[Rfam]
Nucleotides: 186
Stems, first nucleotide, its partner, number of pairs: 003044002007040004013035003016031006045061005064122003068118002071114001073112005090103005135163004165186009
Number, partner (000 for none) and nucleotide at each position: 001000a002000a003044g004043u005000a006000u007040c008039u009038c010037c011000g012000a013035g014034u015033c016031u017030c018029g019028c020027c021026a022000c023000g024000g025000a026021u027020g028019g029018c030017g031016g032000u033015g034014a035013u036000a037010g038009g039008a040007g041000u042000a043004a044003c045061g046060g047059c048058u049057g050000g051000u052000u053000g054000g055000c056000a057049c058048a059047g060046c061045c062000a063000u064122c065121g066120a067000g068118g069117u070000u071114c072000u073112u074111g075110u076109u077108u078000g079000a080000c081000a082000a083000g084000g085000a086000a087000a088000c089000u090103g091102g092101u093100g094099c095000g096000u097000u098000c099094g100093c101092a102091c103090c104000u105000c106000a107000a108077g109076a110075a111074c112073a113000c114071g115000u116000a117069a118068c119000a120066u121065c122064g123000u124000a125000a126000a127000c128000c129000a130000c131000a132000a133000u134000a135163u136162c137161c138160c139000a140000a141000c142000c143000c144000a145000g146000c147000g148000g149000c150000g151000c152000g153000g154000u155000g156000c157000c158000g159000u160138g161137g162136g163135a164000u165186u166185c167184c168183c169182g170181c171180g172179u173178c174000u175000u176000c177000a178173g179172g180171c181170g182169c183168g184167g185166g186165a